This 161-nucleotide sequence from Amborella trichopoda belongs to the Rfam family "U1 spliceosomal RNA".
RNA sequence: AUACUUACCUGGGCGGGGUCAAUCGGUGUUCAAGAAGGCUGAUGGCUUAGGAUGGCUGCCCCCAUUGCACAUGCGGGGGUGGGUCACUCUACCAUCUCUCUUAAUGAGGGAAUGGACGUCAUAAUUUGUGGUAGGGGGGUACGCGUUCGCGCGGCCCCCAC
Numbered sequence: 001a002u003a004c005u006u007a008c009c010u011g012g013g014c015g016g017g018g019u020c021a022a023u024c025g026g027u028g029u030u031c032a033a034g035a036a037g038g039c040u041g042a043u044g045g046c047u048u049a050g051g052a053u054g055g056c057u058g059c060c061c062c063c064a065u066u067g068c069a070c071a072u073g074c075g076g077g078g079g080u081g082g083g084u085c086a087c088u089c090u091a092c093c094a095u096c097u098c099u100c101u102u103a104a105u106g107a108g109g110g111a112a113u114g115g116a117c118g119u120c121a122u123a124a125u126u127u128g129u130g131g132u133a134g135g136g137g138g139g140u141a142c143g144c145g146u147u148c149g150c151g152c153g154g155c156c157c158c159c160a161c
Stems, first nucleotide, its partner, number of pairs: 012120004016048006023042005050088002053086001056082002059079005092115003095111003099107002135159004142153004
The match comes from Rfam's covariance-model search (122 bits).
Lineage of the source: Eukaryota > Streptophyta > Euphyllophyta > Amborellaceae > Amborella.
Rfam describes the family as follows. U1 is a small nuclear RNA (snRNA) component of the spliceosome (involved in pre-mRNA splicing). Its 5' end forms complementary base pairs with the 5' splice junction, thus defining the 5' donor site of an intron.
It is annotated as a spliceosomal small nuclear RNA.